RNA sequence: CAUAUCGUCAAAGUGGUUAGUGACUAUGUAACAUAAUAACUCGUAUCACAGCCUACUUUGAUGAGUGGUU
Number, nucleotide and partner (000 for none) at each position: 001c000002a000003u000004a000005u064006c063007g062008u061009c060010a059011a058012a057013g056014u000015g053016g052017u051018u050019a000020g049021u048022g047023a046024c000025u000026a000027u045028g044029u043030a000031a000032c000033a000034u000035a000036a000037u000038a000039a000040c000041u000042c000043g029044u028045a027046u023047c022048a021049c020050a018051g017052c016053c015054u000055a000056c013057u012058u011059u010060g009061a008062u007063g006064a005065g000066u000067g000068g000069u000070u000

The family of this 70-nucleotide RNA sequence from Rhodamnia argentea is "mir-2 microRNA precursor family".
The family has 56 seed sequences and 918 matches in Rfam 15.1.
The family's consensus secondary structure was predicted with PFOLD.
Gene Ontology terms of the family: RISC complex and miRNA-mediated post-transcriptional gene silencing.
The source organism's lineage runs through Eukaryota, Euphyllophyta, Myrtales, Decasperminae and Rhodamnia.
The literature on the family includes a 2001 paper in Cell by Ambros, "microRNAs: tiny regulators with great potential".